[Rfam]
RNA: serC leader
Organism: Paramagnetospirillum marisnigri
RNA sequence: CGCCGGGCCACGGCCCCCCAACGGGCCGCGUCCCUUCCUAAGAGGGAGGGUUAC
Numbered sequence: 001c002g003c004c005g006g007g008c009c010a011c012g013g014c015c016c017c018c019c020a021a022c023g024g025g026c027c028g029c030g031u032c033c034c035u036u037c038c039u040a041a042g043a044g045g046g047a048g049g050g051u052u053a054c
Stems, first nucleotide, its partner, number of pairs: 011028006034049006